[Rfam]
RNA sequence: AGGAGGAACACCCACAGUGGCGACGGCCAGCUCUGGAGCCCUAGAUUCAGCUCCUGCAGUAACUACAGAGCUCUCCGUCUGCAGGGCCUGGAUGCUCCGUGGUUGG
Numbered sequence: 001a002g003g004a005g006g007a008a009c010a011c012c013c014a015c016a017g018u019g020g021c022g023a024c025g026g027c028c029a030g031c032u033c034u035g036g037a038g039c040c041c042u043a044g045a046u047u048c049a050g051c052u053c054c055u056g057c058a059g060u061a062a063c064u065a066c067a068g069a070g071c072u073c074u075c076c077g078u079c080u081g082c083a084g085g086g087c088c089u090g091g092a093u094g095c096u097c098c099g100u101g102g103u104u105g106g
Base pairs, nucleotide, nucleotide: 002098003097004096005095007093009090010089012086013085019079020078021077022076025074026073029072030071031070032069033068034067035066037064041059042058
Rfam assigns this 106-nucleotide RNA sequence from Canis lupus to the family "mir-8834 microRNA precursor family". Rfam links the family to the GO terms RISC complex and miRNA-mediated post-transcriptional gene silencing. Lineage of the source: Eukaryota > Craniata > Euteleostomi > Carnivora > Canis lupus. The family's consensus secondary structure was predicted with RNAalifold.